[Rfam]
RNA sequence: GGAUUGAGUAGAAGCGGCUAGCGGUCGGUAGAACGGACACUUACCUUCCUGCGGGGCAUUGCUCGUGAU
Numbered sequence: 001g002g003a004u005u006g007a008g009u010a011g012a013a014g015c016g017g018c019u020a021g022c023g024g025u026c027g028g029u030a031g032a033a034c035g036g037a038c039a040c041u042u043a044c045c046u047u048c049c050u051g052c053g054g055g056g057c058a059u060u061g062c063u064c065g066u067g068a069u
Base pairs, nucleotide, nucleotide: 005065006064007063008062009061010060015054018056019055021052022051023050024049
The record is a 69-nucleotide RNA sequence from Herbaspirillum frisingense, which matches "Xanthine riboswitch aptamer (NMT1 RNA)" in Rfam.
A reference for the family is Yu and Breaker (2020), "A bacterial riboswitch class senses xanthine and uric acid to regulate genes associated with purine oxidation", RNA.
The family's consensus secondary structure is taken from published work.
Rfam links the family to the GO term purine nucleobase binding.